[Rfam]
RNA: MIR397 microRNA precursor family
RNA sequence: GAAAAAAACAUAAUUGAAUGUAGCGUUGAUGAAAUUAAACCAUAUAGUAUCGAGUUACUAUUAUAAAAAUUAAUUCAUCAACGCUGCACUCAAUGAUGUUUCUU
Dot-bracket structure: .....((((((.(((((.((((((((((.(((..........................................))).)))))))))).))))).))))))...